[Rfam]
RNA sequence: GUACUCCCUCUGUAAAGAAAUAUAAGAGCGUUUCGAUCACUGUUAGUGAUCGAAACGCUCUUAUAUUUCUUUACAGAGGGAGUAA
Numbered sequence: 001g002u003a004c005u006c007c008c009u010c011u012g013u014a015a016a017g018a019a020a021u022a023u024a025a026g027a028g029c030g031u032u033u034c035g036a037u038c039a040c041u042g043u044u045a046g047u048g049a050u051c052g053a054a055a056c057g058c059u060c061u062u063a064u065a066u067u068u069c070u071u072u073a074c075a076g077a078g079g080g081a082g083u084a085a
Stems, first nucleotide, its partner, number of pairs: 003083003007079005013073005019067023
The record is an 85-nucleotide RNA from Aegilops tauschii, which matches "MIR1120/MIR1122 microRNA precursor family" in Rfam. The family's consensus secondary structure was predicted with RNAalifold. It scores 94 bits against the family's covariance model. Rfam links the family to the GO terms miRNA-mediated post-transcriptional gene silencing and RISC complex. For this family Rfam cites "Cloning and characterization of microRNAs from wheat (Triticum aestivum L.)" (Yao et al., Genome Biol, 2007).